[Rfam]
RNA sequence: CUUUACCUAAUUUGUUGUCCAUCAUGUAAAACAUAAAUGAUGAUAGACACCAUAUAAGGUAGAGGA
Dot-bracket structure: ((((((((.((.((.((((((((((...........))))))...)))).)).)).))))))))..
Numbered sequence: 001c002u003u004u005a006c007c008u009a010a011u012u013u014g015u016u017g018u019c020c021a022u023c024a025u026g027u028a029a030a031a032c033a034u035a036a037a038u039g040a041u042g043a044u045a046g047a048c049a050c051c052a053u054a055u056a057a058g059g060u061a062g063a064g065g066a
Stems, first nucleotide, its partner, number of pairs: 001064008010055002013052002016049004020042006